[Rfam]
RNA sequence: GUUGCAAAUUCAAAGGCUAUAGCAGAAGUGGUCAUGGUGCAGCCCCAUCAAAUUCCAACAAAUCUGCGAAUUCUGGU
Numbered sequence: 001g002u003u004g005c006a007a008a009u010u011c012a013a014a015g016g017c018u019a020u021a022g023c024a025g026a027a028g029u030g031g032u033c034a035u036g037g038u039g040c041a042g043c044c045c046c047a048u049c050a051a052a053u054u055c056c057a058a059c060a061a062a063u064c065u066g067c068g069a070a071u072u073c074u075g076g077u
Stems, first nucleotide, its partner, number of pairs: 015044004021077001023075005028040003049066002052063003
The family of this 77-nucleotide sequence from Crocodylus porosus is "Mammalian CPEB3 ribozyme". Rfam describes the family as follows. The mammalian CPEB3 ribozyme is a self cleaving RNA located in the second intron of the CPEB3 gene which belongs to a family of genes regulating messenger RNA polyadenylation. This ribozyme is highly conserved and found only in mammals. The base pairs follow the family's consensus structure, which is taken from published work. For this family Rfam cites "Autocatalytic RNA cleavage in the human beta-globin pre-mRNA promotes transcription termination" (Teixeira et al., Nature, 2004). A search with the family's covariance model found it, with a score of 36 bits.